[Rfam]
A member of the RNA family "FMN riboswitch aptamer (RFN element)" from Cutibacterium granulosum, 129 nucleotides long.
RNA sequence: CACGUGCUCCGGGGUCGGUGAAAAUCCGAACCGGCGGUGACAGUCCGCGACCCGCGAGGUUCGUCCUUGCGGUUGAAUCGGUGAAACUCCGAUACCGACGGUGACAGUCCGGAUGGGAGGAAGCACGAG
Dot-bracket structure: ..((((((((.....(((.......))).[[((((((.....[[))))...((.................))....(((((.......)))))]])).(((.....]]))).......)).))))))..

Its family is annotated with FMN binding in the Gene Ontology. Lineage of the source: Bacteria > Bacillati > Actinomycetota > Cutibacterium > Cutibacterium granulosum.